[Rfam]
RNA sequence: CGGGCAACUUCAAAUGGAAGCAUUGAUGAUUGUUGUGUUCAUAAGUGCUUCUCUUUGGGGUUGUCUUG
Numbered sequence: 001c002g003g004g005c006a007a008c009u010u011c012a013a014a015u016g017g018a019a020g021c022a023u024u025g026a027u028g029a030u031u032g033u034u035g036u037g038u039u040c041a042u043a044a045g046u047g048c049u050u051c052u053c054u055u056u057g058g059g060g061u062u063g064u065c066u067u068g
Stems, first nucleotide, its partner, number of pairs: 004064008014055001016052009026042003
Annotation: Shown here is a 68-nucleotide sequence from Myripristis murdjan, a member of the family "miR-430 microRNA precursor family". The organism belongs to Myripristis, within Eukaryota. For this family Rfam cites "MicroRNAs regulate brain morphogenesis in zebrafish" (Giraldez et al., Science, 2005). Gene Ontology terms of the family: miRNA-mediated post-transcriptional gene silencing and RISC complex.